The family of this 85-nucleotide RNA from Jatropha curcas is "small nucleolar RNA snoR117".
RNA sequence: GGCCUGUGAUGCAUAUAAGAAAUUGUUUGUACCAUCUGAUUAUAUUCUCAUUUCAUGUAUUUAAACCCUCUAGCUUCUUAGGCCU
Dot-bracket structure: ((((((........................................................................)))))).

Rfam classes the family as a C/D-box small nucleolar RNA. Rfam 15.1 lists 419 matches to the family in 211 species.